[Rfam]
RNA sequence: UCAUUGUGAUCUGAACAGGCGGUGGACAUAUAAAAGGUCCAUGCAGCCGGGCUGCAAUUUUUGCGGCAGCAGAGUAUGUAAAUAAUAAGGGCAUACCUGUGGGACAGUU
Numbered sequence: 001u002c003a004u005u006g007u008g009a010u011c012u013g014a015a016c017a018g019g020c021g022g023u024g025g026a027c028a029u030a031u032a033a034a035a036g037g038u039c040c041a042u043g044c045a046g047c048c049g050g051g052c053u054g055c056a057a058u059u060u061u062u063g064c065g066g067c068a069g070c071a072g073a074g075u076a077u078g079u080a081a082a083u084a085a086u087a088a089g090g091g092c093a094u095a096c097c098u099g100u101g102g103g104a105c106a107g108u109u
Stems, first nucleotide, its partner, number of pairs: 011107003016103001018048003022042006051067005069100004